Plastid-psbA-3 3UTR RNA: a 55-nucleotide sequence from Lysionotus pauciflorus. The literature on the family includes a 2023 paper in Plant Commun by Richter et al., "Retrograde signaling in plants: A critical review focusing on the GUN pathway and beyond". About the family: Plastid psbA-3 is a non-coding RNA (ncRNA) present in plastids. Taxonomically the source falls in Lysionotus (Eukaryota, Viridiplantae, Embryophyta, Gunneridae). The base pairs follow the family's consensus structure, which was predicted with LocARNA. Its Rfam clan is "Plastid-psbA 3UTR RNA clan".

RNA sequence: AAAGGAGCAAUAACCCCCUUGCUAGAACAAGAAAUAGGUUAUUGCUCCUUAUAUU
Numbered sequence: 001a002a003a004g005g006a007g008c009a010a011u012a013a014c015c016c017c018c019u020u021g022c023u024a025g026a027a028c029a030a031g032a033a034a035u036a037g038g039u040u041a042u043u044g045c046u047c048c049u050u051a052u053a054u055u
Base pairs, nucleotide, nucleotide: 002050003049004048005047006046007045008044009043010042011041012040013039014038018031019030020029021028